Record summary: This 105-nucleotide RNA sequence from Prunus dulcis belongs to the Rfam family "MIR6274 microRNA precursor family". Pairs were carried over by alignment from the consensus structure, which was predicted with RNAalifold. The match comes from Rfam's covariance-model search (81 bits). Taxonomically the source falls in Prunus (Eukaryota, Euphyllophyta, Gunneridae, Rosales).
RNA sequence: AGAUAAUACUUUUUGCUAUCUCCUGUCAAUAGUGCAAUGAUACGUGGAAUAACUUUUUCAUAUAUCAUUGCAUUAUUGAUCGGAGAUAGCAAAACAGUGCAAUCC
Numbered sequence: 001a002g003a004u005a006a007u008a009c010u011u012u013u014u015g016c017u018a019u020c021u022c023c024u025g026u027c028a029a030u031a032g033u034g035c036a037a038u039g040a041u042a043c044g045u046g047g048a049a050u051a052a053c054u055u056u057u058u059c060a061u062a063u064a065u066c067a068u069u070g071c072a073u074u075a076u077u078g079a080u081c082g083g084a085g086a087u088a089g090c091a092a093a094a095c096a097g098u099g100c101a102a103u104c105c
Stems, first nucleotide, its partner, number of pairs: 002104003011094009021084003025080018044061006